The record is a 208-nucleotide RNA sequence from Spirosomataceae bacterium TFI 002, which matches "Group II catalytic intron D1-D4-3" in Rfam. The pairing is the family consensus, mapped onto this sequence.
[Rfam]
RNA sequence: GGUCAGGUGACUGACCAUCUGAAGUAAUCGGACCGCCGAAGCGGCCAAACCACGUUGUCUGUACUGACGAACAGGAACUACAUACUGAGGCUAUAAGGACUGGGCGUCCCCGACGUAUGAGGUAACACAUGCUGCCGAAGUCCAAAACUCUGCAAAGAGACAGUUCCGAAAUAGUAGAUCUGGCGGGGAUAGACAAAAGGAUAUUCGC
Number, nucleotide and partner (000 for none) at each position: 001g016002g015003u014004c013005a012006g011007g000008u000009g000010a000011c006012u005013g004014a003015c002016c001017a000018u000019c000020u000021g000022a000023a000024g000025u000026a000027a000028u000029c000030g000031g000032a000033c000034c000035g000036c000037c000038g000039a000040a000041g208042c207043g206044g205045c000046c000047a000048a000049a000050c200051c000052a000053c000054g000055u000056u195057g194058u193059c192060u191061g190062u188063a000064c186065u185066g184067a000068c000069g000070a000071a000072c000073a000074g000075g000076a000077a000078c183079u182080a181081c000082a179083u178084a000085c000086u000087g000088a000089g000090g175091c174092u173093a000094u171095a000096a000097g143098g142099a141100c140101u000102g000103g136104g135105c134106g000107u000108c000109c000110c000111c000112g000113a000114c000115g000116u000117a000118u000119g000120a000121g000122g000123u000124a000125a000126c000127a000128c000129a000130u000131g000132c000133u000134g105135c104136c103137g000138a000139a000140g100141u099142c098143c097144a000145a000146a000147a000148c000149u000150c000151u000152g000153c000154a000155a000156a000157g000158a000159g000160a000161c000162a000163g000164u000165u000166c000167c000168g000169a000170a000171a094172u000173a092174g091175u090176a000177g000178a083179u082180c000181u080182g079183g078184c066185g065186g064187g000188g062189a000190u061191a060192g059193a058194c057195a056196a000197a000198a000199g000200g050201a000202u000203a000204u000205u044206c043207g042208c041

Notes:
About the family: Group II introns are found in rRNA, tRNA and mRNA of organelles in fungi, plants and protists, and also in mRNA in bacteria.